[Rfam]
RNA: Ribosomal protein L20 leader
Organism: Desulforamulus reducens
RNA sequence: AUAUUAAAGUAGAAGCAUCCCGCUUCUCACCUUACAACCGAGGUUCGUAGGGUCUUAUUACACAAUAUGUUUUUAAAAUUGUGUCUAUUAGCGGGUGUUUAUCACCCGCUUUUUAUUUUUUGU
Numbered sequence: 001a002u003a004u005u006a007a008a009g010u011a012g013a014a015g016c017a018u019c020c021c022g023c024u025u026c027u028c029a030c031c032u033u034a035c036a037a038c039c040g041a042g043g044u045u046c047g048u049a050g051g052g053u054c055u056u057a058u059u060a061c062a063c064a065a066u067a068u069g070u071u072u073u074u075a076a077a078a079u080u081g082u083g084u085c086u087a088u089u090a091g092c093g094g095g096u097g098u099u100u101a102u103c104a105c106c107c108g109c110u111u112u113u114u115a116u117u118u119u120u121u122g123u
Stems, first nucleotide, its partner, number of pairs: 011027006029053003034048002037044002090110008